RNA sequence: AGAGGUUGCAAGAUCAUUGCAGAAGUGCUCAUGGCAUGGCCUGUCAGAUUCCACUUAAUCUGUGAAUUCUGCU
Numbered sequence: 001a002g003a004g005g006u007u008g009c010a011a012g013a014u015c016a017u018u019g020c021a022g023a024a025g026u027g028c029u030c031a032u033g034g035c036a037u038g039g040c041c042u043g044u045c046a047g048a049u050u051c052c053a054c055u056u057a058a059u060c061u062g063u064g065a066a067u068u069c070u071g072c073u
Base pairs, nucleotide, nucleotide: 014039015038019072020071021070022069023068024067025037026036027035045062046061047060048059049058050057
This 73-nucleotide sequence from Crocodylus porosus belongs to the Rfam family "Mammalian CPEB3 ribozyme". Taxonomically the source falls in Crocodylus (Eukaryota, Opisthokonta, Craniata, Teleostomi).